Rfam assigns this 94-nucleotide RNA from Embleya scabrispora to the family "Glycine riboswitch aptamer". A search with the family's covariance model found it, with a score of 62 bits.
[Rfam]
RNA sequence: CGACCCCACGCGGAAGAGUCCUCGCCAUCGAGCGGGGCGCCGAAGGAGCAACUCCUCCCCGGAAUCUCUCAGGCACCGAUACCGCAUGGGUCAG
Numbered sequence: 001c002g003a004c005c006c007c008a009c010g011c012g013g014a015a016g017a018g019u020c021c022u023c024g025c026c027a028u029c030g031a032g033c034g035g036g037g038c039g040c041c042g043a044a045g046g047a048g049c050a051a052c053u054c055c056u057c058c059c060c061g062g063a064a065u066c067u068c069u070c071a072g073g074c075a076c077c078g079a080u081a082c083c084g085c086a087u088g089g090g091u092c093a094g
Base pairs, nucleotide, nucleotide: 006089007088008087010085011084012083013082020037021036022035023034039074040073041072042070043069046068047067048066052062053061
This family represents the bacterial glycine riboswitch. Glycine riboswitches usually consist of two metabolite-binding aptamers domains with similar structures in tandem. The aptamers cooperatively bind glycine to regulate the expression of downstream genes. In Bacillus subtilis, this riboswitch is found upstream of the gcvT operon which controls glycine degradation.